This 118-nucleotide sequence from Acidovorax sp. Leaf160 belongs to the Rfam family "Glycine riboswitch aptamer". NCBI's taxonomy places the organism under Bacteria, Pseudomonadota, Betaproteobacteria, Comamonadaceae, Acidovorax. The match comes from Rfam's covariance-model search (56 bits).
[Rfam]
RNA sequence: GUUUCCCUAGCUGGAGAGAGGUUGCCGCCCGUUCGACAUGGCUGGCAGCCCACCGAAGGAGCAAACCCCGCCAUGCGGCGCGGUGAAUCUCUCAGGUAAAGCGGACAGCGGGGCACAU
Numbered sequence: 001g002u003u004u005c006c007c008u009a010g011c012u013g014g015a016g017a018g019a020g021g022u023u024g025c026c027g028c029c030c031g032u033u034c035g036a037c038a039u040g041g042c043u044g045g046c047a048g049c050c051c052a053c054c055g056a057a058g059g060a061g062c063a064a065a066c067c068c069c070g071c072c073a074u075g076c077g078g079c080g081c082g083g084u085g086a087a088u089c090u091c092u093c094a095g096g097u098a099a100a101g102c103g104g105a106c107a108g109c110g111g112g113g114c115a116c117a118u
Stems, first nucleotide, its partner, number of pairs: 006113003010109004020050008052097003055093002059091003065084002